RNA sequence: AGUGGCUCAUUCACCUCCUUAUGACAGCCCUGCUAACGCGGUCAAGCGCUUCAUAAAACGCCGAAUGACGCACAAAACGGUGCCUGCCGUCCACGUACCGAUAAUAGUUCGCUUGCGACUUUAUCAAACACCGGGCGCAACGUUGAGUUAGGCACCACCUA
Numbered sequence: 001a002g003u004g005g006c007u008c009a010u011u012c013a014c015c016u017c018c019u020u021a022u023g024a025c026a027g028c029c030c031u032g033c034u035a036a037c038g039c040g041g042u043c044a045a046g047c048g049c050u051u052c053a054u055a056a057a058a059c060g061c062c063g064a065a066u067g068a069c070g071c072a073c074a075a076a077a078c079g080g081u082g083c084c085u086g087c088c089g090u091c092c093a094c095g096u097a098c099c100g101a102u103a104a105u106a107g108u109u110c111g112c113u114u115g116c117g118a119c120u121u122u123a124u125c126a127a128a129c130a131c132c133g134g135g136c137g138c139a140a141c142g143u144u145g146a147g148u149u150a151g152g153c154a155c156c157a158c159c160u161a
Stems, first nucleotide, its partner, number of pairs: 005071002007068006019056006026050003079156007088137005100125005139149003
A member of the RNA family "Glm Y RNA activator of glmS mRNA" from Pantoea alhagi, 161 nucleotides long. The base pairs follow the family's consensus structure, which is taken from published work. Rfam's curators write: This family consists of a number of bacterial RNA genes of around 167 bases in length. The tke1 RNA gene is present in Escherichia coli, Shigella flexneri, Yersinia pestis and Salmonella species where it is found between the yfhK and purL genes. The function of this RNA is unknown. The family's RNA type in Rfam is small RNA.